[Rfam]
RNA sequence: AAUUGAUUUUCGGGGAGCUUGCGUGAAGCAGGCUGAGAGGGAGCUGUUCGCUCCGACCCGUGACCUGAUUUGGAUAAUGCCAACGUAGGGAGCAAGCAGGAUCUUUGU
Dot-bracket structure: ......((.(((((..(((((.......)))))......(((((.....)))))..))))...((((..((((......))))..))))..).)).............
Rfam assigns this 108-nucleotide RNA sequence from Ruminococcus sp. YE71 to the family "TPP riboswitch aptamer (THI element)". Taxonomically the source falls in Ruminococcus (Bacteria, Bacillota, Eubacteriales, Oscillospiraceae). The family's consensus secondary structure is taken from published work. Rfam links the family to the GO term thiamine pyrophosphate binding.